[Rfam]
RNA sequence: AUGAGAAUUGAUGGAUCGAGAGAUGAAGGUGCAUAGCGAGCAGGGAAAGAUAUAUGGCGGAUGGAUAAUAAACCACAAAGGGUGUCAAAGUCCUUAUCCUCAGAAGGCAAAAGAGGAGAUUAUGCUGAUUAUUAAUUAGUGUAUCGUGAACGCAUAUGCGACUAGACGGUAGUUCCAAGUAUGCAGGCGUAAUGGGGAUUCAUAGGAAUCACGCAUACAUACA
Dot-bracket structure: ......(((.....(((....)))...)))...........................................(((.((((((......)))))).(((((...........)))))(((.((.(((((.....))))).))))))))..(((....)))..................((((((............(((((....)))))..)))))).....
Numbered sequence: 001a002u003g004a005g006a007a008u009u010g011a012u013g014g015a016u017c018g019a020g021a022g023a024u025g026a027a028g029g030u031g032c033a034u035a036g037c038g039a040g041c042a043g044g045g046a047a048a049g050a051u052a053u054a055u056g057g058c059g060g061a062u063g064g065a066u067a068a069u070a071a072a073c074c075a076c077a078a079a080g081g082g083u084g085u086c087a088a089a090g091u092c093c094u095u096a097u098c099c100u101c102a103g104a105a106g107g108c109a110a111a112a113g114a115g116g117a118g119a120u121u122a123u124g125c126u127g128a129u130u131a132u133u134a135a136u137u138a139g140u141g142u143a144u145c146g147u148g149a150a151c152g153c154a155u156a157u158g159c160g161a162c163u164a165g166a167c168g169g170u171a172g173u174u175c176c177a178a179g180u181a182u183g184c185a186g187g188c189g190u191a192a193u194g195g196g197g198a199u200u201c202a203u204a205g206g207a208a209u210c211a212c213g214c215a216u217a218c219a220u221a222c223a
Stems, first nucleotide, its partner, number of pairs: 007030003015024003074148003078095006097117005118145003122142002125139005151160003179218006197210005